[Rfam]
RNA sequence: ACUGGCUGGGAUGACACACUUGCCCUCACUGAGGCAGUUCAUGAUGAGAACUCUUGUUUGUACUCAUUUGUUCUGAGCCAGU
Numbered sequence: 001a002c003u004g005g006c007u008g009g010g011a012u013g014a015c016a017c018a019c020u021u022g023c024c025c026u027c028a029c030u031g032a033g034g035c036a037g038u039u040c041a042u043g044a045u046g047a048g049a050a051c052u053c054u055u056g057u058u059u060g061u062a063c064u065c066a067u068u069u070g071u072u073c074u075g076a077g078c079c080a081g082u
Stems, first nucleotide, its partner, number of pairs: 001082006
RNA: Small nucleolar RNA SNORD103/SNORD85